The family of this 58-nucleotide RNA sequence is "psbNH RNA". Rfam classes the family as a cis-regulatory element.
RNA sequence: GGGUGAGGUUCAGUCUGGAUACUGUAGGGGCCACGGCCCAGAACGGGUCGAACCUGUC
Dot-bracket structure: ..........................(((....((((((.....))))))..)))...